[Rfam]
A member of the RNA family "SAM riboswitch aptamer (S box leader)" from Cytobacillus kochii, 106 nucleotides long. NCBI's taxonomy places the organism under Bacteria, Bacillota, Bacilli, Bacillaceae, Cytobacillus.
RNA sequence: UUCUUAUCGAGAGUGGUGGAGGGACUGGCCCUAUGAAACCCGGCAACCGGUUGUUUGAUACACGGUGCUAAUUCCAGCAGAGCAUAAAAGCUCUGGUAGAUAAGAA
Number, nucleotide and partner (000 for none) at each position: 001u106002u105003c104004u103005u102006a101007u100008c099009g000010a000011g000012a000013g041014u000015g040016g039017u038018g000019g000020a000021g031022g030023g029024a000025c077026u076027g075028g074029c023030c022031c021032u000033a000034u000035g000036a000037a000038a017039c016040c015041c013042g069043g068044c067045a066046a000047c065048c064049g061050g000051u000052u058053g000054u000055u000056u000057g000058a052059u000060a000061c049062a000063c000064g048065g047066u045067g044068c043069u042070a000071a000072u000073u098074c028075c027076a026077g025078c095079a094080g093081a092082g091083c090084a000085u000086a000087a000088a000089a000090g083091c082092u081093c080094u079095g078096g000097u000098a073099g008100a007101u006102a005103a004104g003105a002106a001